[Rfam]
RNA: Purine riboswitch aptamer
Organism: Alteribacillus persepolensis
RNA sequence: UUUUAAAGGUGAAUAUCUCUUCGUAUAUACCCGGGAAUCGGCCCGGAAGUCUCUACCCGGUCACCGUAAAUGACUGGACUACGAAGGCAGUUCCAUGAUCU
Dot-bracket structure: .................((((((((.....(((((......)))))..........(((((((.......)))))))..))))))))..............